[Rfam]
RNA sequence: GGCUGGUCUGAAUGACAAUGGGAUGUCAGAACUUACCUUAGUGUCACUGUAGUUGGCAUACAACCCGCCCCCCCCACUGCUAAAUUUGACUGGCUUUUU
Numbered sequence: 001g002g003c004u005g006g007u008c009u010g011a012a013u014g015a016c017a018a019u020g021g022g023a024u025g026u027c028a029g030a031a032c033u034u035a036c037c038u039u040a041g042u043g044u045c046a047c048u049g050u051a052g053u054u055g056g057c058a059u060a061c062a063a064c065c066c067g068c069c070c071c072c073c074c075c076a077c078u079g080c081u082a083a084a085u086u087u088g089a090c091u092g093g094c095u096u097u098u099u
Stems, first nucleotide, its partner, number of pairs: 001095008010087002017078001019076004024058003028054002

Record summary:
The family of this 99-nucleotide RNA sequence from Callithrix jacchus is "Y RNA". Taxonomically the source falls in Callithrix (Eukaryota, Opisthokonta, Eumetazoa, Amniota). Pairs were carried over by alignment from the consensus structure, which is taken from published work. The literature on the family includes a 2013 paper in Physiol Genomics by Dhahbi et al., "5'-YRNA fragments derived by processing of transcripts from specific YRNA genes and pseudogenes are abundant in human serum and plasma".